[Rfam]
Notes: mir-132 microRNA precursor family: a 66-nucleotide RNA from Cricetulus griseus. Lineage of the source: Eukaryota > Teleostomi > Sarcopterygii > Amniota > Cricetulus. The base pairs follow the family's consensus structure, which was predicted with RNAalifold.

RNA sequence: CGCGCCGGCACCUUGGCUCUAGACUGCUUACUGCCCGGGCCGCCCUCAGUAACAGUCUCCAGUCAC
Numbered sequence: 001c002g003c004g005c006c007g008g009c010a011c012c013u014u015g016g017c018u019c020u021a022g023a024c025u026g027c028u029u030a031c032u033g034c035c036c037g038g039g040c041c042g043c044c045c046u047c048a049g050u051a052a053c054a055g056u057c058u059c060c061a062g063u064c065a066c
Base pairs, nucleotide, nucleotide: 014065015064016063017062022057023056024055025054026053028052029051030050031049032048
Dot-bracket structure: .............((((....(((((.(((((...............))))))))))....)))).
Record summary: The sequence is in the family's curated seed alignment.